[Rfam]
RNA sequence: GGCGUAAAGGGUCCGCAGGUGGCCUCGUAAGUUGAAUGUGAAAUCUCAGGGCUUAACCCUGAAACUGCAUCCAAUACUGCGAGGCUUGAGUCCAAGAGAGGUUGGCGGAAUUCCCGGUGUAGCGGUGAAAUGCGUAGAUAUCGGGAGGAACACCAGUGGCGAAGGCGGCCAACUGGCUUGGAACUGACACUCAGGGACGAAAGCGUGGGUAGCGAACCGGAUUAGAUACCCGGGUAGUCCACGCCCUAAACGAUGGAUGCUAGGUGUGGGGAUGAAAAUCUCUGUGCCGAAGUUAACGCAUUAAGCAUCCCGCCUGGGGGAGUACGGUCGCAAGAUUGAAACUCAAAGGAAU
Numbered sequence: 001g002g003c004g005u006a007a008a009g010g011g012u013c014c015g016c017a018g019g020u021g022g023c024c025u026c027g028u029a030a031g032u033u034g035a036a037u038g039u040g041a042a043a044u045c046u047c048a049g050g051g052c053u054u055a056a057c058c059c060u061g062a063a064a065c066u067g068c069a070u071c072c073a074a075u076a077c078u079g080c081g082a083g084g085c086u087u088g089a090g091u092c093c094a095a096g097a098g099a100g101g102u103u104g105g106c107g108g109a110a111u112u113c114c115c116g117g118u119g120u121a122g123c124g125g126u127g128a129a130a131u132g133c134g135u136a137g138a139u140a141u142c143g144g145g146a147g148g149a150a151c152a153c154c155a156g157u158g159g160c161g162a163a164g165g166c167g168g169c170c171a172a173c174u175g176g177c178u179u180g181g182a183a184c185u186g187a188c189a190c191u192c193a194g195g196g197a198c199g200a201a202a203g204c205g206u207g208g209g210u211a212g213c214g215a216a217c218c219g220g221a222u223u224a225g226a227u228a229c230c231c232g233g234g235u236a237g238u239c240c241a242c243g244c245c246c247u248a249a250a251c252g253a254u255g256g257a258u259g260c261u262a263g264g265u266g267u268g269g270g271g272a273u274g275a276a277a278a279u280c281u282c283u284g285u286g287c288c289g290a291a292g293u294u295a296a297c298g299c300a301u302u303a304a305g306c307a308u309c310c311c312g313c314c315u316g317g318g319g320g321a322g323u324a325c326g327g328u329c330g331c332a333a334g335a336u337u338g339a340a341a342c343u344c345a346a347a348g349g350a351a352u
Stems, first nucleotide, its partner, number of pairs: 001314003009311001011198004018191003022085007030078002032074003036070005046062006089185003092181005100174007107151001111147008122133003159166002203244006212238002217233004255310006263288011292299002316344003326337004

Annotation
Bacterial small subunit ribosomal RNA: a 352-nucleotide part of an RNA from an uncultured bacterium. Pairs were carried over by alignment from the consensus structure, which is taken from published work.